[Rfam]
RNA sequence: UACGAUGACUCGGGGUGCCCUUCUUUGUGAAGGCUGAGAAAUCCCCGUACCACCUGAUCUGGAUAAUGCCAGCGUAGGGAAGUAUCGGUAUUCCGAU
Numbered sequence: 001u002a003c004g005a006u007g008a009c010u011c012g013g014g015g016u017g018c019c020c021u022u023c024u025u026u027g028u029g030a031a032g033g034c035u036g037a038g039a040a041a042u043c044c045c046c047g048u049a050c051c052a053c054c055u056g057a058u059c060u061g062g063a064u065a066a067u068g069c070c071a072g073c074g075u076a077g078g079g080a081a082g083u084a085u086c087g088g089u090a091u092u093c094c095g096a097u
Stems, first nucleotide, its partner, number of pairs: 008083003011047004016041001017034003021030001053078004059072004
Shown here is a 97-nucleotide RNA sequence from Candidatus Symbiopectobacterium sp. PLON1, a member of the family "TPP riboswitch aptamer (THI element)". From the family's description: Vitamin B(1) in its active form thiamin pyrophosphate (TPP) is an essential coenzyme that is synthesised by coupling of pyrimidine and thiazole moieties in bacteria. Rfam links the family to the GO term thiamine pyrophosphate binding. It scores 66 bits against the family's covariance model.